A member of the RNA family "Glutamine-II riboswitch aptamer", 54 nucleotides long. It is one of the family's seed sequences. Rfam links the family to the GO term glutamine binding. On this family, see Huang et al., Nucleic Acids Res 2019: "Structure and ligand binding of the glutamine-II riboswitch".
RNA sequence: GUCCGUUCAUCCUAAUUAGGACGCAUGAAAUCCAAGCAUGGAACGGGGCUUGGG
Numbered sequence: 001g002u003c004c005g006u007u008c009a010u011c012c013u014a015a016u017u018a019g020g021a022c023g024c025a026u027g028a029a030a031u032c033c034a035a036g037c038a039u040g041g042a043a044c045g046g047g048g049c050u051u052g053g054g
Stems, first nucleotide, its partner, number of pairs: 004045005010021004031054007